[Rfam]
Shown here is an 80-nucleotide RNA sequence from Medicago truncatula, a member of the family "MIR5269 microRNA precursor family". Pairs were carried over by alignment from the consensus structure, which was predicted with RNAalifold. Rfam 15.1 lists 389 matches to the family in 6 species. It scores 73 bits against the family's covariance model.
RNA sequence: UUGAGUGAAAUCAAUGUAAGACCUACACUUUGGAAAUAGAACCCAUAUAAAGUGGUGAGACAUACAUUAAUUUUACCUAA
Dot-bracket structure: (((.(((((((.((((((.....(((((((((...............))))))).)).....)))))).))))))).)))